RNA sequence: ACUUGAUAAAGGCAAAAUCAUUGAAAGGUGAUGACGCAAAGCUACAGGGGCUAAGGUUUUGAACUAUGCCAGCCAGUUGCCGAG
Numbered sequence: 001a002c003u004u005g006a007u008a009a010a011g012g013c014a015a016a017a018u019c020a021u022u023g024a025a026a027g028g029u030g031a032u033g034a035c036g037c038a039a040a041g042c043u044a045c046a047g048g049g050g051c052u053a054a055g056g057u058u059u060u061g062a063a064c065u066a067u068g069c070c071a072g073c074c075a076g077u078u079g080c081c082g083a084g
Base pairs, nucleotide, nucleotide: 012037013036017032018031019030020029021028022027040078041077042076043075047074048073049070050069051068056064057063058062
The record is an 84-nucleotide sequence from Paenibacillus sp. PvR098, which matches "c-di-GMP-I riboswitch aptamer" in Rfam. Clan: c-di-GMP_I riboswitch clan. The base pairs follow the family's consensus structure, which is taken from published work. Its family is annotated with cyclic-di-GMP binding in the Gene Ontology.